[Rfam]
RNA: mir-187 microRNA precursor family
RNA sequence: UGCAGGGGGCCGCAGGCUGCAACACGGGAUAUGGGAGCUGCUCGUUUUACCCUCGUGUCUUGUGUUGCAGCCAGUGGAACUGC
Numbered sequence: 001u002g003c004a005g006g007g008g009g010c011c012g013c014a015g016g017c018u019g020c021a022a023c024a025c026g027g028g029a030u031a032u033g034g035g036a037g038c039u040g041c042u043c044g045u046u047u048u049a050c051c052c053u054c055g056u057g058u059c060u061u062g063u064g065u066u067g068c069a070g071c072c073a074g075u076g077g078a079a080c081u082g083c
Stems, first nucleotide, its partner, number of pairs: 011076002015072004020067011032055004